[Rfam]
Small nucleolar RNA snoR74: a 144-nucleotide RNA from Panicum hallii. Its family is annotated with RNA processing and nucleolus in the Gene Ontology. The family's consensus secondary structure was predicted with WAR. For this family Rfam cites "Experimental RNomics: identification of 140 candidates for small non-messenger RNAs in the plant Arabidopsis thaliana" (Marker et al., Curr Biol, 2002).
RNA sequence: GAAAAAGCAGGCCGCUGUGCUCUCUACUAGCAGUGCCCCCGUAAACUUUAGGAACAUCAUUGUUCAUCGUUAUUGGGUGAACCUUCGGACUCGUUCUUGUGUUGGACGAUCCUGUCCAUUGGUUCAGUAAAUGAUGGCACAUUU
Numbered sequence: 001g002a003a004a005a006a007g008c009a010g011g012c013c014g015c016u017g018u019g020c021u022c023u024c025u026a027c028u029a030g031c032a033g034u035g036c037c038c039c040c041g042u043a044a045a046c047u048u049u050a051g052g053a054a055c056a057u058c059a060u061u062g063u064u065c066a067u068c069g070u071u072a073u074u075g076g077g078u079g080a081a082c083c084u085u086c087g088g089a090c091u092c093g094u095u096c097u098u099g100u101g102u103u104g105g106a107c108g109a110u111c112c113u114g115u116c117c118a119u120u121g122g123u124u125c126a127g128u129a130a131a132u133g134a135u136g137g138c139a140c141a142u143u144u
Base pairs, nucleotide, nucleotide: 005048006047007046011037014034015033016032017031064137065136066135067134068133069132070131071130078126079125080124081123082122083121